Shown here is a 119-nucleotide sequence, a member of the family "pemK RNA".
[Rfam]
RNA sequence: AUAAUGAAACUUUUACCUAGUCACAGCUUGAGCGUUGAAAUCAGAGUAAUCGACUGAUGAGCCGUCGCACGCAAUGAAGGUAACUCGGCAAGAAUUGCAGAGUGGUGAAAUUCCAAUGA
Numbered sequence: 001a002u003a004a005u006g007a008a009a010c011u012u013u014u015a016c017c018u019a020g021u022c023a024c025a026g027c028u029u030g031a032g033c034g035u036u037g038a039a040a041u042c043a044g045a046g047u048a049a050u051c052g053a054c055u056g057a058u059g060a061g062c063c064g065u066c067g068c069a070c071g072c073a074a075u076g077a078a079g080g081u082a083a084c085u086c087g088g089c090a091a092g093a094a095u096u097g098c099a100g101a102g103u104g105g106u107g108a109a110a111u112u113c114c115a116a117u118g119a
Base pairs, nucleotide, nucleotide: 012116013083014082015081016080017079018078084102085101086100088098089097090096103115104114105113